[Rfam]
Nucleotides: 369
Base pairs, nucleotide, nucleotide: 001365002364003363004362005361006360007359008358009357010356011355012325013324014323015322016321017320018319020037021036023034024033025032026031042353043352044351046350047349048348049347050346051214052213053212054211058261059260060259061258063210064209065208066207067206068082069081070080071079072078083101084099085098086097087096088095089094102205103204107203108202109199110198111197124145125144127140128139129138130137131136153171154170156168157167158166172194173192174191175190176189177188178187179186180185218282219281220280221279229272230271231270232269233268253265254264255263256262289308290307291306292305293304294303295302296301
Number, partner (000 for none) and nucleotide at each position: 001365a002364a003363g004362g005361c006360a007359a008358a009357c010356u011355a012325g013324u014323c015322u016321a017320u018319c019000g020037c021036u022000g023034u024033u025032c026031c027000a028000a029000a030000u031026g032025g033024a034023a035000g036021a037020g038000a039000g040000g041000a042353a043352a044351g045000u046350c047349u048348g049347g050346g051214c052213a053212g054211u055000a056000a057000a058261g059260a060259g061258c062000a063210c064209c065208g066207u067206a068082c069081u070080u071079c072078c073000u074000a075000a076000c077000g078072g079071g080070a081069a082068g083101g084099g085098u086097u087096c088095g089094u090000u091000u092000u093000a094089a095088c096087g097086a098085a099084u100000a101083c102205a103204g104000a105000a106000a107203g108202u109199g110198c111197c112000g113000c114000a115000g116000a117000a118000a119000a120000u121000a122000a123000a124145c125144u126000a127140c128139c129138u130137c131136g132000u133000u134000u135000a136131c137130g138129a139128g140127g141000a142000a143000a144125a145124g146000g147000u148000g149000a150000a151000a152000a153171g154170g155000c156168g157167a158166g159000g160000u161000a162000a163000g164000a165000g166158c167157u168156c169000a170154c171153c172194g173192c174191g175190c176189u177188u178187g179186u180185g181000g182000c183000g184000a185180c186179a187178u188177g189176a190175g191174u192173g193000g194172c195000a196000g197111g198110g199109u200000a201000a202108a203107c204103c205102u206067u207066a208065c209064g210063g211054a212053c213052u214051g215000a216000a217000a218282g219281a220280u221279c222000a223000u224000g225000u226000a227000u228000a229272c230271c231270g232269a233268g234000g235000c236000g237000c238000a239000c240000a241000g242000a243000a244000a245000u246000g247000u248000g249000c250000u251000a252000a253265g254264a255263a256262u257000u258061g259060c260059u261058c262256g263255u264254u265253c266000g267000a268233c269232u270231c271230g272229g273000a274000g275000g276000g277000u278000a279221g280220a281219u282218c283000g284000a285000u286000a287000g288000a289308u290307g291306c292305u293304a294303a295302a296301g297000g298000u299000g300000a301296c302295u303294u304293u305292a306291g307290u308289a309000c310000u311000g312000g313000a314000u315000a316000a317000a318000u319018g320017a321016u322015a323014g324013a325012c326000a327000c328000c329000u330000u331000u332000u333000u334000a335000a336000g337000g338000a339000c340000a341000c342000a343000g344000a345000a346050c347049c348048c349047g350046g351044c352043u353042u354000a355011u356010g357009g358008u359007u360006u361005g362004c363003c364002u365001u366000u367000u368000u369000u
The record is a 369-nucleotide RNA sequence from Lishizhenia tianjinensis, which matches "Bacterial RNase P class A" in Rfam. The family is grouped with related families in Rfam's "RNaseP clan". Rfam classes the family as a ribozyme.